Shown here is a 74-nucleotide sequence from Bacillus subtilis, a member of the family "tRNA". The base pairs follow the family's consensus structure, which is taken from published work. Lineage of the source: Bacteria > Bacillati > Caryophanales > Bacillaceae > Bacillus.
[Rfam]
RNA sequence: GGACCUUUAGCUCAGUUGGUUAGAGCAGACGGCUCAUAACCGUCCGGUCGUAGGUUCGAGUCCUACAAGGUCCA
Numbered sequence: 001g002g003a004c005c006u007u008u009a010g011c012u013c014a015g016u017u018g019g020u021u022a023g024a025g026c027a028g029a030c031g032g033c034u035c036a037u038a039a040c041c042g043u044c045c046g047g048u049c050g051u052a053g054g055u056u057c058g059a060g061u062c063c064u065a066c067a068a069g070g071u072c073c074a
Stems, first nucleotide, its partner, number of pairs: 001073007010026004028044005050066005